[Rfam]
mir-219 microRNA precursor family: a 68-nucleotide RNA sequence from Galbula dea. Lineage of the source: Eukaryota > Bilateria > Archelosauria > Dinosauria > Galbula. It scores 67 bits against the family's covariance model. On this family, see Lim et al., Science 2003: "Vertebrate microRNA genes".

RNA sequence: CCGGCUUGUGAUUGUCCAAACGCAAUUCUUGUGUGAGCCGAGAAUUGGGUGUGGACAUCGUGAGCCGG
Numbered sequence: 001c002c003g004g005c006u007u008g009u010g011a012u013u014g015u016c017c018a019a020a021c022g023c024a025a026u027u028c029u030u031g032u033g034u035g036a037g038c039c040g041a042g043a044a045u046u047g048g049g050u051g052u053g054g055a056c057a058u059c060g061u062g063a064g065c066c067g068g
Base pairs, nucleotide, nucleotide: 002067003066004065005064006063007062009060010059011058012057014056015055016054017053018052021049023047024046025045026044027043028042029041030040031039